[Rfam]
RNA sequence: GGGAGUGCAGGAUCCUGGGCUGUGUCCCCGGCGCCCUGGGAUCUGGGGCCUGUGCUGCUGGAAUCAUGCUCCCAGGGCCACGGCUCCG
Numbered sequence: 001g002g003g004a005g006u007g008c009a010g011g012a013u014c015c016u017g018g019g020c021u022g023u024g025u026c027c028c029c030g031g032c033g034c035c036c037u038g039g040g041a042u043c044u045g046g047g048g049c050c051u052g053u054g055c056u057g058c059u060g061g062a063a064u065c066a067u068g069c070u071c072c073c074a075g076g077g078c079c080a081c082g083g084c085u086c087c088g
Stems, first nucleotide, its partner, number of pairs: 001086003007081001010079002014076002017072003021068004025062002028060001029057006038050001040049001042047001
This 88-nucleotide sequence from Canis lupus belongs to the Rfam family "mir-8799 microRNA precursor family". A search with the family's covariance model found it, with a score of 50 bits. Clan: mir-8791 microRNA precursor clan. Lineage of the source: Eukaryota > Craniata > Eutheria > Caniformia > Canis lupus.